[Rfam]
RNA sequence: GAGCCCCUCACUGCAGCUGCUGGACACUGCACAAGAUUAGAGAAGUAAAACUCUUGUGCGUGUGACAGCGGCUAUGGUUGGGACUCACUGCAUCCAC
Numbered sequence: 001g002a003g004c005c006c007c008u009c010a011c012u013g014c015a016g017c018u019g020c021u022g023g024a025c026a027c028u029g030c031a032c033a034a035g036a037u038u039a040g041a042g043a044a045g046u047a048a049a050a051c052u053c054u055u056g057u058g059c060g061u062g063u064g065a066c067a068g069c070g071g072c073u074a075u076g077g078u079u080g081g082g083a084c085u086c087a088c089u090g091c092a093u094c095c096a097c
Stems, first nucleotide, its partner, number of pairs: 006082003010078003015073008025062002028060006035053002
The family of this 97-nucleotide RNA from Cryptotermes secundus is "mir-210 microRNA precursor family".
For this family Rfam cites "Kaposi's sarcoma-associated herpesvirus expresses an array of viral microRNAs in latently infected cells" (Cai et al., Proc Natl Acad Sci U S A, 2005).
The organism belongs to Cryptotermes, within Eukaryota.